RNA sequence: CUCUGGAAAGCAGGCGACGGGUUUUAGCGUUUCCGUCGUCUCACCGAAGAUGAAAGCUGGCCGUUUCCGCCGGUGAAUCUUUCAGGUCACAGGACAGAG
Numbered sequence: 001c002u003c004u005g006g007a008a009a010g011c012a013g014g015c016g017a018c019g020g021g022u023u024u025u026a027g028c029g030u031u032u033c034c035g036u037c038g039u040c041u042c043a044c045c046g047a048a049g050a051u052g053a054a055a056g057c058u059g060g061c062c063g064u065u066u067c068c069g070c071c072g073g074u075g076a077a078u079c080u081u082u083c084a085g086g087u088c089a090c091a092g093g094a095c096a097g098a099g
Stems, first nucleotide, its partner, number of pairs: 001099005012041010043087003046083002050081001052079001056074006

Rfam assigns this 99-nucleotide sequence from Telmatospirillum siberiense to the family "Glycine riboswitch aptamer". It scores 41 bits against the family's covariance model. Its family is annotated with glycine biosynthetic process in the Gene Ontology.